[Rfam]
Rfam assigns this 70-nucleotide RNA sequence from Mesobacillus persicus to the family "Listeria sRNA sbrA". Rfam classes the family as a small RNA. Pairs were carried over by alignment from the consensus structure, which was predicted with WAR. A search with the family's covariance model found it, with a score of 63 bits. For this family Rfam cites "The Listeria transcriptional landscape from saprophytism to virulence" (Toledo-Arana et al., Nature, 2009).
RNA sequence: UUACAGCUAGAUCCAUACCCCUAAACUCCCUAGAUGAAAGACAGCGCCAAACAUGCGCUGUCCUUUUUUU
Dot-bracket structure: ...((.(((.....................))).))...((((((((.(....)))))))))........